[Rfam]
RNA sequence: GCGAGACGGGGGAGCCCGUGGCCGAGGCCCGACCGAUAAACUGUUCACGGACGGCGCCGGGUGCAGCCCCCGCCGUCCGCCAUUGAUCAGUCAGCAGCCGCUGCAAACCCAGGGAG
Numbered sequence: 001g002c003g004a005g006a007c008g009g010g011g012g013a014g015c016c017c018g019u020g021g022c023c024g025a026g027g028c029c030c031g032a033c034c035g036a037u038a039a040a041c042u043g044u045u046c047a048c049g050g051a052c053g054g055c056g057c058c059g060g061g062u063g064c065a066g067c068c069c070c071c072g073c074c075g076u077c078c079g080c081c082a083u084u085g086a087u088c089a090g091u092c093a094g095c096a097g098c099c100g101c102u103g104c105a106a107a108c109c110c111a112g113g114g115a116g
Base pairs, nucleotide, nucleotide: 049078050077051076052075053074054073058072059071060070061069092103093102094101095100
RNA: Streptomyces-metK RNA